[Rfam]
GcvB RNA: a 190-nucleotide RNA from Avibacterium volantium. Lineage of the source: Bacteria > Pseudomonadota > Gammaproteobacteria > Pasteurellales > Avibacterium. It is annotated as a non-coding RNA gene.

RNA sequence: UCACUACAAUACGCACAUACUUAAUGAUUGGUAAUUCCUUAUUGGUUAAGAGUUUCGACUUAAGUAUGAUGUUGUGUUUGCAUAGUUCGGGCAACCGAACGGAGUAACUGGUUAGUUACUCAUUUCACUUCCUGUAUAUUUAUUAAACCAUUUUGGUUAAGCACCGCUCAAUUGGGCGGUGUUUUUUUUA
Number, nucleotide and partner (000 for none) at each position: 001u000002c000003a000004c000005u000006a000007c000008a000009a060010u000011a000012c057013g000014c000015a054016c000017a000018u000019a000020c000021u052022u000023a000024a000025u048026g047027a046028u045029u044030g043031g042032u041033a040034a039035u000036u000037c000038c000039u034040u033041a032042u031043u030044g029045g028046u027047u026048a025049a000050g000051a000052g021053u000054u015055u000056c000057g012058a000059c000060u009061u000062a000063a000064g000065u000066a000067u000068g000069a000070u000071g000072u000073u000074g000075u000076g000077u000078u000079u000080g000081c000082a000083u000084a000085g100086u099087u098088c097089g096090g095091g000092c000093a000094a000095c090096c089097g088098a087099a086100c085101g000102g000103a120104g119105u118106a117107a116108c115109u000110g000111g000112u000113u000114a000115g108116u107117u106118a105119c104120u103121c000122a000123u000124u000125u000126c000127a000128c000129u000130u000131c000132c000133u000134g000135u000136a000137u000138a157139u156140u155141u000142a000143u000144u000145a000146a000147a000148c000149c000150a000151u000152u000153u000154u000155g140156g139157u138158u000159a000160a183161g182162c181163a180164c179165c178166g177167c176168u000169c000170a000171a000172u000173u000174g000175g000176g167177c166178g165179g164180u163181g162182u161183u160184u000185u000186u000187u000188u000189u000190a000